[Rfam]
Nucleotides: 123
Base pairs, nucleotide, nucleotide: 003122004121005120006119007118008117009116010115015110016109017108018107019106020105021104023102024101025100026099029097030096031095032094034092035091036090
Number, partner (000 for none) and nucleotide at each position: 001000g002000u003122u004121u005120u006119g007118g008117g009116a010115a011000u012000u013000g014000g015110c016109c017108a018107c019106u020105a021104c022000c023102u024101c025100g026099c027000a028000g029097u030096c031095a032094c033000g034092u035091g036090a037000u038000g039000a040000g041000a042000g043000a044000g045000a046000u047000g048000c049000a050000a051000g052000a053000g054000g055000a056000c057000u058000u059000u060000g061000u062000a063000u064000g065000c066000c067000a068000u069000u070000u071000g072000c073000a074000u075000u076000u077000a078000a079000u080000a081000u082000u083000u084000c085000a086000u087000a088000g089000u090036u091035c092034a093000u094032g095031u096030g097029a098000u099026g100025u101024g102023a103000c104021g105020u106019a107018g108017u109016g110015g111000a112000a113000c114000a115010u116009u117008c118007c119006u120005g121004a122003g123000c
A member of the RNA family "mir-989 microRNA precursor family" from Drosophila willistoni, 123 nucleotides long. The organism belongs to Sophophora, within Eukaryota. Rfam 15.1 lists 57 matches to the family in 54 species. The match comes from Rfam's covariance-model search (86 bits).